[Rfam]
RNA sequence: AGCCGACGACAGGGGCGCCGCGGCGACACCACGCAGCGGCUGAGAGGCACCCUCGGAACCUGACCCGGAUAAUGCCGGCGUAGGGAGUCGUGCAGCGACGGCC
Numbered sequence: 001a002g003c004c005g006a007c008g009a010c011a012g013g014g015g016c017g018c019c020g021c022g023g024c025g026a027c028a029c030c031a032c033g034c035a036g037c038g039g040c041u042g043a044g045a046g047g048c049a050c051c052c053u054c055g056g057a058a059c060c061u062g063a064c065c066c067g068g069a070u071a072a073u074g075c076c077g078g079c080g081u082a083g084g085g086a087g088u089c090g091u092g093c094a095g096c097g098a099c100g101g102c103c
Base pairs, nucleotide, nucleotide: 006091007090008089009088010087011053012052013051014050016047017040018039019038020037021036059084060083061082062081065078066077067076068075
The family of this 103-nucleotide RNA from Halomonas heilongjiangensis is "TPP riboswitch aptamer (THI element)".